[Rfam]
RNA sequence: CUCACGGCUUAGGGCGAAUGUCGGAGUAGUCGCUUGUGGUAGAAUUGACAAAAAGUGACUAGACCGAACACUCGUACCCCUAAAUCGUCGA
Number, nucleotide and partner (000 for none) at each position: 001c000002u000003c000004a000005c000006g000007g000008c000009u000010u000011a081012g080013g078014g077015c000016g075017a000018a000019u070020g069021u068022c066023g065024g064025a000026g000027u061028a060029g059030u058031c057032g000033c055034u054035u000036g000037u000038g000039g000040u000041a000042g000043a000044a000045u000046u000047g000048a000049c000050a000051a000052a000053a000054a034055g033056u000057g031058a030059c029060u028061a027062g000063a000064c024065c023066g022067a000068a021069c020070a019071c000072u000073c000074g000075u016076a000077c014078c013079c000080c012081u011082a000083a000084a000085u000086c000087g000088u000089c000090g000091a000